[Rfam]
RNA: Phenylalanine leader peptide
Organism: Shewanella aestuarii
RNA sequence: AACAAAAUAUUAUCUCGCGUUUUUAUUUUCUUUUUUAUGCAGCCCAUUUAGGGAGGCGGUUUUUCUGUAUCAAAAAGAAAAUGAAAAUACCAAAGCCUCCCAACUGGGAGGCUUUUUAGUU
Number, nucleotide and partner (000 for none) at each position: 001a000002a000003c000004a000005a000006a000007a000008u000009a000010u000011u000012a000013u000014c000015u000016c000017g000018c000019g000020u087021u086022u085023u084024u083025a082026u081027u080028u079029u078030c077031u076032u075033u074034u000035u072036u000037a070038u069039g000040c000041a000042g000043c052044c051045c000046a000047u000048u000049u000050a000051g044052g043053g000054a000055g066056g065057c000058g063059g000060u000061u000062u000063u058064u000065c056066u055067g000068u000069a038070u037071c000072a035073a000074a033075a032076a031077g030078a029079a028080a027081a026082u025083g024084a023085a022086a021087a020088u000089a000090c000091c000092a115093a114094a113095g112096c111097c110098u109099c108100c107101c106102a000103a000104c000105u000106g101107g100108g099109a098110g097111g096112c095113u094114u093115u092116u000117u000118a000119g000120u000121u000